[Rfam]
RNA sequence: UGUCCCUAUGAAGAAUAGAACUGAAAGUAAAAGUAAUGAACUGAUUCUGCUUGACGAACAAUGUAUCUGAGGGAUA
Dot-bracket structure: ((((((................................................................))))))
This 76-nucleotide sequence from Populus alba belongs to the Rfam family "Small nucleolar RNA R21".
Rfam links the family to the GO terms nucleolus and RNA processing.
A search with the family's covariance model found it, with a score of 46 bits.
On this family, see Barneche et al., J Mol Biol 2001: "Identification of 66 box C/D snoRNAs in Arabidopsis thaliana: extensive gene duplications generated multiple isoforms predicting new ribosomal RNA 2'-O-methylation sites".
Rfam classes the family as a C/D-box small nucleolar RNA.